[Rfam]
RNA sequence: CAAGUGAAACGAGAGACUUACUUGUGUCUCUUUGUUGAAUCAAAAAGAAGAAUAGUAAAAUGGUGAAAUAUCGUUUCAUUCGCCCUUAAUCUGAUUGGCGAUUUGAUUGUUGCUCCUCUACAU
Number, nucleotide and partner (000 for none) at each position: 001c000002a000003a000004g000005u000006g000007a036008a000009a035010c034011g033012a000013g030014a029015g028016a027017c026018u000019u000020a000021c000022u000023u000024g000025u000026g017027u016028c015029u014030c013031u000032u000033u011034g010035u009036u007037g000038a000039a000040u000041c000042a000043a000044a000045a000046a000047g000048a000049a000050g000051a000052a000053u000054a000055g000056u000057a000058a000059a000060a000061u000062g119063g118064u000065g115066a114067a000068a000069u000070a107071u106072c105073g104074u000075u000076u000077c000078a000079u000080u101081c100082g099083c098084c097085c000086u000087u094088a000089a000090u000091c000092u000093g000094a087095u000096u000097g084098g083099c082100g081101a080102u000103u000104u073105g072106a071107u070108u000109g000110u000111u000112g000113c000114u066115c065116c000117u000118c063119u062120a000121c000122a000123u000
Small nucleolar RNA snoR111: a 123-nucleotide sequence from Coptis chinensis. Its family is annotated with nucleolus and RNA processing in the Gene Ontology. Taxonomically the source falls in Coptis (Eukaryota, Euphyllophyta, Mesangiospermae, Ranunculaceae). For this family Rfam cites "Experimental RNomics: identification of 140 candidates for small non-messenger RNAs in the plant Arabidopsis thaliana" (Marker et al., Curr Biol, 2002). Pairs were carried over by alignment from the consensus structure, which was predicted with WAR.